RNA sequence: AUCUCAUCACAACGGCUUCCUGGCGUGGUGGGCUAACUUUAAUGGAGCA
Numbered sequence: 001a002u003c004u005c006a007u008c009a010c011a012a013c014g015g016c017u018u019c020c021u022g023g024c025g026u027g028g029u030g031g032g033c034u035a036a037c038u039u040u041a042a043u044g045g046a047g048c049a
Base pairs, nucleotide, nucleotide: 004031005030006029007028008027009026010025013022014021015048016047017046019045020044
Rfam assigns this 49-nucleotide RNA sequence from Pseudooceanicola lipolyticus to the family "SAM/SAH riboswitch aptamer".
Pairs were carried over by alignment from the consensus structure, which is taken from published work.
It scores 58 bits against the family's covariance model.
The source organism's lineage runs through Bacteria, Pseudomonadati, Pseudomonadota, Rhodobacterales and Pseudooceanicola.